RNA: 7SK RNA
RNA sequence: GGAUGUGAGGGCGAUCUGGCUGCGACAUCUGUCACCCCAUUGAUCGCCAAGGUUGAUUCGGCAGAUCUGGCUGGCUAGGUGGGUGUCCCCUUCCUCCCUCACAGCUCCAUGUGCGUCCCUCCCAAAGCUGCGCGCUCAGUGGAAGAGGACAACUAUCCCAGGUAGAAGGAGUGUACCGAUCUUCGGUCAAGGGUAUAUGAUAGCUGUGCUCCCCUGCUAGAACCUCCAUACAUCUUUUUCUUAUAUAGAUUCUAUAUUUAACAGAGUUGGAUGGUAUUUUUGUAUUAACAUUAUUAUUAUUAUUAUUAUUAUUAUUAUUAUUAUUAUU
Numbered sequence: 001g002g003a004u005g006u007g008a009g010g011g012c013g014a015u016c017u018g019g020c021u022g023c024g025a026c027a028u029c030u031g032u033c034a035c036c037c038c039a040u041u042g043a044u045c046g047c048c049a050a051g052g053u054u055g056a057u058u059c060g061g062c063a064g065a066u067c068u069g070g071c072u073g074g075c076u077a078g079g080u081g082g083g084u085g086u087c088c089c090c091u092u093c094c095u096c097c098c099u100c101a102c103a104g105c106u107c108c109a110u111g112u113g114c115g116u117c118c119c120u121c122c123c124a125a126a127g128c129u130g131c132g133c134g135c136u137c138a139g140u141g142g143a144a145g146a147g148g149a150c151a152a153c154u155a156u157c158c159c160a161g162g163u164a165g166a167a168g169g170a171g172u173g174u175a176c177c178g179a180u181c182u183u184c185g186g187u188c189a190a191g192g193g194u195a196u197a198u199g200a201u202a203g204c205u206g207u208g209c210u211c212c213c214c215u216g217c218u219a220g221a222a223c224c225u226c227c228a229u230a231c232a233u234c235u236u237u238u239u240c241u242u243a244u245a246u247a248g249a250u251u252c253u254a255u256a257u258u259u260a261a262c263a264g265a266g267u268u269g270g271a272u273g274g275u276a277u278u279u280u281u282g283u284a285u286u287a288a289c290a291u292u293a294u295u296a297u298u299a300u301u302a303u304u305a306u307u308a309u310u311a312u313u314a315u316u317a318u319u320a321u322u323a324u325u326a327u328u
Base pairs, nucleotide, nucleotide: 001108002107003106005102006101007100008099009098010097011096013093014092018090019089024087025086026085027084028083029082030081031080032079033078035074036073037070038069039068042067043066044065045064046062047061048060117173118169119168120167121165122139125136127135128134140162147158148157149156203275204274205273209269212266214264215263216262225256232250233249234248293328295326297323299321300320302316304314305313